Description
This 75-nucleotide sequence from Sphingomonas sp. Root241 belongs to the Rfam family "Makes More Granules Regulator RNA (mmgR)". Clan: suhB sRNA clan. The family's RNA type in Rfam is small RNA. Taxonomically the source falls in Sphingomonas (Bacteria, Alphaproteobacteria, Sphingomonadales, Sphingomonadaceae). The family has 87 seed sequences and 1,791 matches in Rfam 15.1.
RNA sequence: AGAUCGGGCCUUUCAGGCAUCCUCUCCUAAGACUUUAAACGGCCGUCCCUCGGGGCGGCCUUUUUUUUGCGCAGG
Number, nucleotide and partner (000 for none) at each position: 001a000002g000003a000004u000005c000006g000007g000008g018009c017010c016011u015012u000013u000014c000015a011016g010017g009018c008019a000020u000021c000022c000023u000024c000025u000026c000027c000028u000029a000030a000031g000032a000033c000034u000035u000036u000037a000038a000039a000040c000041g060042g059043c058044c057045g056046u055047c054048c053049c000050u000051c000052g000053g048054g047055g046056c045057g044058g043059c042060c041061u000062u000063u000064u000065u000066u000067u000068u000069g000070c000071g000072c000073a000074g000075g000